[Rfam]
RNA sequence: AAACAGCACUCGACCGAACUCGCGCGGCAGGAGCGGGGGAACCAGGUAGGCCGCUGCGCCGGAGUUCCGCUCCGGAGCAGCCAGGGGUGAAGCCGUACGUGUUCCGUUCACUGCACGUGCACGUCCGCGUUGCACGUGCACGGGCACGGACGGCCGGACAUCUCCAAUCCGAACCCGACAGCUCACCUCGCAGGCGCCGGAGAGGAAUU
Dot-bracket structure: ..........((.((....((........)).((((((....(........................................)(((.....((((.....................................................))))..(((.........)))...))).........)))))).)))).............
RNA: c-di-AMP riboswitch aptamer (ydaO/yuaA leader)
Organism: Streptomyces sp. BR123